[Rfam]
RNA: speF leader
RNA sequence: UGCCGGCUUUCCAUCAGCCGGGGUUACUGAAGAGGCACACCUUCAUUGCCGGAAGUGCGGUUGGGAUCACCCCCUCCAAUCCAUGGCAGACAAAGCCGAAUCCGAGCCUAGGCGGGCUCAGGUUCACCGUUCGCGCAUAUGCGCAUGCUUGGUUC
Numbered sequence: 001u002g003c004c005g006g007c008u009u010u011c012c013a014u015c016a017g018c019c020g021g022g023g024u025u026a027c028u029g030a031a032g033a034g035g036c037a038c039a040c041c042u043u044c045a046u047u048g049c050c051g052g053a054a055g056u057g058c059g060g061u062u063g064g065g066a067u068c069a070c071c072c073c074c075u076c077c078a079a080u081c082c083a084u085g086g087c088a089g090a091c092a093a094a095g096c097c098g099a100a101u102c103c104g105a106g107c108c109u110a111g112g113c114g115g116g117c118u119c120a121g122g123u124u125c126a127c128c129g130u131u132c133g134c135g136c137a138u139a140u141g142c143g144c145a146u147g148c149u150u151g152g153u154u155c
Base pairs, nucleotide, nucleotide: 001023003021004020005019006018007017008016034050035049036048037047057136058135059134085097086096105118106117107116108115109114